[Rfam]
RNA sequence: AAGACUAUACUUUCAGGGAUCAUUUCUAUAGUGUGUUACUAGAGAAUUGUGGCUGAAAGUGUAGCACGGAGGUAACCACGAGGAGGAGCUGUGGUGUUCUCUUCUGAGCGUGAAGCUGGUUUGUGACACUGCUUAUCAGCAGCUGUCACCUGCCAUUUAUGAUUGUUCUUCUCUUUCUUUGGGAGGGGUGAGAGGAAGAGAACACAGACUGAGUGGG
Numbered sequence: 001a002a003g004a005c006u007a008u009a010c011u012u013u014c015a016g017g018g019a020u021c022a023u024u025u026c027u028a029u030a031g032u033g034u035g036u037u038a039c040u041a042g043a044g045a046a047u048u049g050u051g052g053c054u055g056a057a058a059g060u061g062u063a064g065c066a067c068g069g070a071g072g073u074a075a076c077c078a079c080g081a082g083g084a085g086g087a088g089c090u091g092u093g094g095u096g097u098u099c100u101c102u103u104c105u106g107a108g109c110g111u112g113a114a115g116c117u118g119g120u121u122u123g124u125g126a127c128a129c130u131g132c133u134u135a136u137c138a139g140c141a142g143c144u145g146u147c148a149c150c151u152g153c154c155a156u157u158u159a160u161g162a163u164u165g166u167u168c169u170u171c172u173c174u175u176u177c178u179u180u181g182g183g184a185g186g187g188g189u190g191a192g193a194g195g196a197a198g199a200g201a202a203c204a205c206a207g208a209c210u211g212a213g214u215g216g217g
Stems, first nucleotide, its partner, number of pairs: 002040002006035006015027004049065002054061001076216004094205012108166003118154003124148004129142004169191002171188007
Small nucleolar RNA U3: a 217-nucleotide RNA from Vombatus ursinus. The base pairs follow the family's consensus structure, which is taken from published work. A reference for the family is Marz and Stadler (2010), "Comparative analysis of eukaryotic U3 snoRNA", RNA Biol. Small nucleolar RNAs (snoRNAs) are involved in the processing and modification of rRNA in the nucleolus. There are two main classes of snoRNAs: the box C/D class, and the box H/ACA class. U3 snoRNA is a member of the box C/D class. Indeed, the box C/D element is a subset of the six short sequence elements found in all U3 snoRNAs, namely boxes A, A', B, C, C', and D. The U3 snoRNA secondary structure is characterised by a small 5' domain (with boxes A and A'), and a larger 3' domain (with boxes B, C, C', and D), the two domains being linked by a single-stranded hinge. Boxes B and C form the B/C motif, which appears to be exclusive to U3 snoRNAs, and boxes C' and D form the C'/D motif. The latter is functionally similar to the C/D motifs found in other snoRNAs. The 5' domain and the hinge region act as a pre-rRNA-binding domain. The 3' domain has conserved protein-binding sites. Both the box B/C and box C'/D motifs are sufficient for nuclear retention of U3 snoRNA. The box C'/D motif is also necessary for nucleolar localisation, stability and hyper-methylation of U3 snoRNA. Both box B/C and C'/D motifs are involved in specific protein interactions and are necessary for the rRNA processing functions of U3 snoRNA. Taxonomically the source falls in Vombatus (Eukaryota, Gnathostomata, Euteleostomi, Mammalia). Clan: U3 clan. A search with the family's covariance model found it, with a score of 171 bits.